RNA sequence: UUGCCAAUACGCGACUGGCGCAGUCAAGGUGGAGUCGACCACCGGGGAGCGAGCCGUCCGAACACCGCGCGCCUGGGUGUGCGGG
Numbered sequence: 001u002u003g004c005c006a007a008u009a010c011g012c013g014a015c016u017g018g019c020g021c022a023g024u025c026a027a028g029g030u031g032g033a034g035u036c037g038a039c040c041a042c043c044g045g046g047g048a049g050c051g052a053g054c055c056g057u058c059c060g061a062a063c064a065c066c067g068c069g070c071g072c073c074u075g076g077g078u079g080u081g082c083g084g085g
Stems, first nucleotide, its partner, number of pairs: 003058001005056001008053001010051003015046002017073005029042004062080005
Shown here is an 85-nucleotide RNA sequence from Actinomadura spongiicola, a member of the family "ZMP/ZTP riboswitch aptamer (pfl RNA motif)". The family's consensus secondary structure is taken from published work. It scores 51 bits against the family's covariance model. Taxonomically the source falls in Actinomadura (Bacteria, Bacillati, Actinomycetota, Streptosporangiales).